[Rfam]
RNA sequence: CGGCUUGUCAUUGGGGAGUAGCCGCCCUUCUUCAUUGAGAGGGGCUUGCGUCAACAGACUUGUCAGCCCCCGCGGCCGACAUGGCGCAAGCAGGGCGCGCACGGGAUUGUGAUCACGUGUGUGUCUUGGCGAGACCUUUGACUGCACGCCUCCGAUUUUGGCCGGGGGUGUCGUGCAGUCAUUGGUUUUAUCCCGGCCGUGGAAUCCUC
Numbered sequence: 001c002g003g004c005u006u007g008u009c010a011u012u013g014g015g016g017a018g019u020a021g022c023c024g025c026c027c028u029u030c031u032u033c034a035u036u037g038a039g040a041g042g043g044g045c046u047u048g049c050g051u052c053a054a055c056a057g058a059c060u061u062g063u064c065a066g067c068c069c070c071c072g073c074g075g076c077c078g079a080c081a082u083g084g085c086g087c088a089a090g091c092a093g094g095g096c097g098c099g100c101a102c103g104g105g106a107u108u109g110u111g112a113u114c115a116c117g118u119g120u121g122u123g124u125c126u127u128g129g130c131g132a133g134a135c136c137u138u139u140g141a142c143u144g145c146a147c148g149c150c151u152c153c154g155a156u157u158u159u160g161g162c163c164g165g166g167g168g169u170g171u172c173g174u175g176c177a178g179u180c181a182u183u184g185g186u187u188u189u190a191u192c193c194c195g196g197c198c199g200u201g202g203a204a205u206c207c208u209c
Stems, first nucleotide, its partner, number of pairs: 026042003044091010061081004092208003
Annotation:
Rfam assigns this 209-nucleotide RNA from Rhodoferax saidenbachensis to the family "Manganese Mn2+ riboswitch aptamer (yybP-ykoY)". This RNA was originally discovered in E. coli during a large scale screen and was named SraF. The family was later found to exist upstream of related families of protein genes in many bacteria, including the the yybP and ykoK genes in B. subtilis. A search with the family's covariance model found it, with a score of 66 bits.